[Rfam]
RNA sequence: GCUGCCACAGGCGUUGCAAAGGUGACUGCUGUGGCAUCUUUGUGUCAUUAGGUGGCAGAGAGAGACAGGCUAUGUUCUACGCUCGUUUGCUCUGAAACCCGUGAGCACUCAGAGUGAUUGAUAGCCUGACAGC
Numbered sequence: 001g002c003u004g005c006c007a008c009a010g011g012c013g014u015u016g017c018a019a020a021g022g023u024g025a026c027u028g029c030u031g032u033g034g035c036a037u038c039u040u041u042g043u044g045u046c047a048u049u050a051g052g053u054g055g056c057a058g059a060g061a062g063a064g065a066c067a068g069g070c071u072a073u074g075u076u077c078u079a080c081g082c083u084c085g086u087u088u089g090c091u092c093u094g095a096a097a098c099c100c101g102u103g104a105g106c107a108c109u110c111a112g113a114g115u116g117a118u119u120g121a122u123a124g125c126c127u128g129a130c131a132g133c
Stems, first nucleotide, its partner, number of pairs: 001056003005051001007049001010046003016043004021038004026033001064130001066128008080116002083113002086111001088107005
RNA: Small nucleolar RNA SNORA17
Organism: Eubucco bourcierii